[Rfam]
A member of the RNA family "MIR845_2 microRNA precursor family" from Vitis vinifera, 131 nucleotides long.
Rfam 15.1 lists 180 matches to the family in 2 species.
Rfam links the family to the GO terms RISC complex and miRNA-mediated post-transcriptional gene silencing.

RNA sequence: AAAAGGCACAUUAAUUAUCUUUGGGGCCAUGGGAUAAAAAAAAACCCUACAAAACCAAGUUAGCACACCCUAGAAUGGUUCUAGCACAAUUACUAACCUAUAGCUCUGAUACCAGUUGAAGGGAAAAACCC
Numbered sequence: 001a002a003a004a005g006g007c008a009c010a011u012u013a014a015u016u017a018u019c020u021u022u023g024g025g026g027c028c029a030u031g032g033g034a035u036a037a038a039a040a041a042a043a044a045c046c047c048u049a050c051a052a053a054a055c056c057a058a059g060u061u062a063g064c065a066c067a068c069c070c071u072a073g074a075a076u077g078g079u080u081c082u083a084g085c086a087c088a089a090u091u092a093c094u095a096a097c098c099u100a101u102a103g104c105u106c107u108g109a110u111a112c113c114a115g116u117u118g119a120a121g122g123g124a125a126a127a128a129c130c131c
Stems, first nucleotide, its partner, number of pairs: 009121001011119006022108006029101005048086001053080002056077002060073004